[Rfam]
RNA sequence: UUGGGAUCGGUGAUGUUAUUUAUAUACUGCGUUAUCUAUCUGAAAAUCCUUUAAAGGAACUGAAGAUAAUCGUAAUAUACUGAGAUCUUGC
Numbered sequence: 001u002u003g004g005g006a007u008c009g010g011u012g013a014u015g016u017u018a019u020u021u022a023u024a025u026a027c028u029g030c031g032u033u034a035u036c037u038a039u040c041u042g043a044a045a046a047u048c049c050u051u052u053a054a055a056g057g058a059a060c061u062g063a064a065g066a067u068a069a070u071c072g073u074a075a076u077a078u079a080c081u082g083a084g085a086u087c088u089u090g091c
Base pairs, nucleotide, nucleotide: 002090003089004088005087006086007085
RNA: Small nucleolar RNA snoR27